The record is a 76-nucleotide sequence from Myotis lucifugus, which matches "mir-9229 microRNA precursor family" in Rfam. NCBI's taxonomy places the organism under Eukaryota, Teleostomi, Tetrapoda, Laurasiatheria, Myotis. Pairs were carried over by alignment from the consensus structure, which was predicted with RNAalifold.
RNA sequence: GAGACACCCUUAUAGAGCAGGACUUGCUUCAGUGGGGCUUUGGUGCUUACUGAGUCUGCACCUUGAAUGUCGCUCA
Dot-bracket structure: (((..((..(((..(.(((.(((.....((((((((((....)).)))))))))))))).)..)))..))..))).